[Rfam]
RNA sequence: UGCCGGCUUUCCAACAGCCGGGGUUACUGAAGAGGCACACCUUCAUUGCCGGAAGUGCGGUCGGGUUCUCCCUCCAAUCCAAGGCAGACAAGAGCGGACCAUCGCCCUCAACGGCGUGGUUCAUCGACGCAUCAAGCGUCCAUGCCGAUUU
Numbered sequence: 001u002g003c004c005g006g007c008u009u010u011c012c013a014a015c016a017g018c019c020g021g022g023g024u025u026a027c028u029g030a031a032g033a034g035g036c037a038c039a040c041c042u043u044c045a046u047u048g049c050c051g052g053a054a055g056u057g058c059g060g061u062c063g064g065g066u067u068c069u070c071c072c073u074c075c076a077a078u079c080c081a082a083g084g085c086a087g088a089c090a091a092g093a094g095c096g097g098a099c100c101a102u103c104g105c106c107c108u109c110a111a112c113g114g115c116g117u118g119g120u121u122c123a124u125c126g127a128c129g130c131a132u133c134a135a136g137c138g139u140c141c142a143u144g145c146c147g148a149u150u151u
Stems, first nucleotide, its partner, number of pairs: 001023001003021006034050004057130003083095001103116004
RNA: speF leader
Organism: Parahoeflea phototrophica